[Rfam]
RNA sequence: CAGGAGGCCGGCGACGGUUUCCGACGGACCGGGAGAAGUCAGCCGAGGUCAUAGUAGGCCGGGCUUUCCGCCCUGCCGAAGGAC
Numbered sequence: 001c002a003g004g005a006g007g008c009c010g011g012c013g014a015c016g017g018u019u020u021c022c023g024a025c026g027g028a029c030c031g032g033g034a035g036a037a038g039u040c041a042g043c044c045g046a047g048g049u050c051a052u053a054g055u056a057g058g059c060c061g062g063g064c065u066u067u068c069c070g071c072c073c074u075g076c077c078g079a080a081g082g083a084c
Stems, first nucleotide, its partner, number of pairs: 003022008039046002048084003057077003061073002
RNA: Group II catalytic intron D1-D4-1